The family of this 179-nucleotide sequence from Rhizobacter sp. Root1221 is "6S / SsrS RNA". Rfam's curators write: E. coli 6S RNA was the first non coding RNA to be sequenced, but its function was unknown until recently. The source organism's lineage runs through Bacteria, Pseudomonadati, Burkholderiales, Sphaerotilaceae and Rhizobacter. The base pairs follow the family's consensus structure, which is taken from published work.
[Rfam]
Nucleotides: 179
Base pairs, nucleotide, nucleotide: 002177003176004175005174006173007172008171009170010169011168014165016164017163018162030153031152032151033150035149036148037147038146039145040144058129059128060127064123065122069119072118073117074116075115076114077113078112083107088103089102090101091100092099
Number, partner (000 for none) and nucleotide at each position: 001000c002177g003176u004175c005174c006173g007172c008171u009170g010169c011168a012000u013000u014165c015000g016164c017163g018162u019000g020000a021000g022000u023000u024000u025000u026000a027000u028000a029000u030153u031152u032151c033150c034000u035149u036148g037147a038146a039145c040144c041000g042000a043000u044000g045000c046000u047000c048000g049000u050000a051000u052000g053000a054000g055000c056000a057000a058129g059128g060127g061000c062000u063000u064123g065122g066000a067000a068000c069119a070000u071000c072118g073117c074116c075115u076114g077113g078112u079000u080000g081000g082000u083107g084000c085000g086000a087000u088103c089102g090101u091100c092099u093000c094000g095000c096000g097000u098000c099092a100091g101090a102089u103088g104000a105000a106000c107083c108000c109000g110000a111000a112078a113077c114076c115075a116074g117073g118072c119069u120000g121000a122065c123064c124000u125000c126000g127060c128059c129058c130000a131000c132000c133000u134000g135000a136000a137000c138000u139000g140000c141000c142000u143000g144040g145039g146038u147037u148036c149035a150033g151032g152031a153030a154000u155000g156000c157000g158000g159000c160000u161000c162018a163017c164016g165014g166000u167000u168011u169010g170009c171008g172007g173006c174005g175004g176003a177002c178000a179000c